[Rfam]
RNA sequence: ACCCUCCGGUUCCCUUUCCCAUCGGAUCCCAUGGUGAUCGUAAAAGGAGGAAAAGUAAUAUUGAAGCUGGCCUCACAGUACUUGUAGUCUGUGGGCUAGUUUCAAACAAGG
Numbered sequence: 001a002c003c004c005u006c007c008g009g010u011u012c013c014c015u016u017u018c019c020c021a022u023c024g025g026a027u028c029c030c031a032u033g034g035u036g037a038u039c040g041u042a043a044a045a046g047g048a049g050g051a052a053a054a055g056u057a058a059u060a061u062u063g064a065a066g067c068u069g070g071c072c073u074c075a076c077a078g079u080a081c082u083u084g085u086a087g088u089c090u091g092u093g094g095g096c097u098a099g100u101u102u103c104a105a106a107c108a109a110g111g
Stems, first nucleotide, its partner, number of pairs: 003050005020036004025030001067099007